[Rfam]
The family of this 34-nucleotide sequence from Anabas testudineus is "Iron response element I". The family's consensus secondary structure is taken from published work. The organism belongs to Anabas, within Eukaryota. Rfam 15.1 lists 6,829 matches to the family in 599 species. Rfam links the family to the GO term response to iron ion.
RNA sequence: GAGUUCCUGCUUCAACAGUGAUUGAACAGAACGU
Numbered sequence: 001g002a003g004u005u006c007c008u009g010c011u012u013c014a015a016c017a018g019u020g021a022u023u024g025a026a027c028a029g030a031a032c033g034u
Stems, first nucleotide, its partner, number of pairs: 001034001003032003007029001009027001011026005016020001